[Rfam]
The family of this 81-nucleotide RNA from Pipistrellus kuhlii is "mir-574 microRNA precursor family". Clan: mir-574 microRNA precursor clan.

RNA sequence: AGGCCCGAAGAGAGAGGCAGGGUCUGAUCUGCAGCCUCUGUGGCAGCUGUUGAUCAGCCACUGCCUCUCUUUCUCUUUGGG
Dot-bracket structure: ........((((((((((((.(.((((((..((((..........))))..)))))).).)))))))))))).........
Numbered sequence: 001a002g003g004c005c006c007g008a009a010g011a012g013a014g015a016g017g018c019a020g021g022g023u024c025u026g027a028u029c030u031g032c033a034g035c036c037u038c039u040g041u042g043g044c045a046g047c048u049g050u051u052g053a054u055c056a057g058c059c060a061c062u063g064c065c066u067c068u069c070u071u072u073c074u075c076u077u078u079g080g081g
Stems, first nucleotide, its partner, number of pairs: 009072012022059001024057006032049004